U1 spliceosomal RNA: a 164-nucleotide sequence from Ornithorhynchus anatinus.
The organism belongs to Ornithorhynchus, within Eukaryota.
Pairs were carried over by alignment from the consensus structure, which is taken from published work.
Rfam's curators write: U1 is a small nuclear RNA (snRNA) component of the spliceosome (involved in pre-mRNA splicing).
Gene Ontology terms of the family: U1 snRNP, mRNA 5'-splice site recognition and pre-mRNA 5'-splice site binding.
The literature on the family includes a 1994 paper in Nature by Oubridge et al., "Crystal structure at 1.92 A resolution of the RNA-binding domain of the U1A spliceosomal protein complexed with an RNA hairpin".
It scores 168 bits against the family's covariance model.
RNA sequence: AUACUUACCUGGCAGGGGUUUUACCAUGAUCACGUAGGUGGUAGGCCCAGGGUGAGGCUCAGCCAUUGCACUUGGGUUGUGCUGACCCCUGCGAUUUCCCCAAAUGCGGGAAACUCGACUGCAUAAUUUGUGGUAGUGGGGGACUGCGUUCGCGCUCUCCCCCG
Numbered sequence: 001a002u003a004c005u006u007a008c009c010u011g012g013c014a015g016g017g018g019u020u021u022u023a024c025c026a027u028g029a030u031c032a033c034g035u036a037g038g039u040g041g042u043a044g045g046c047c048c049a050g051g052g053u054g055a056g057g058c059u060c061a062g063c064c065a066u067u068g069c070a071c072u073u074g075g076g077u078u079g080u081g082c083u084g085a086c087c088c089c090u091g092c093g094a095u096u097u098c099c100c101c102a103a104a105u106g107c108g109g110g111a112a113a114c115u116c117g118a119c120u121g122c123a124u125a126a127u128u129u130g131u132g133g134u135a136g137u138g139g140g141g142g143a144c145u146g147c148g149u150u151c152g153c154g155c156u157c158u159c160c161c162c163c164g
Stems, first nucleotide, its partner, number of pairs: 012122004016048006023042005049090004054086001056083003060079005092117003095113003099109002138163006146155003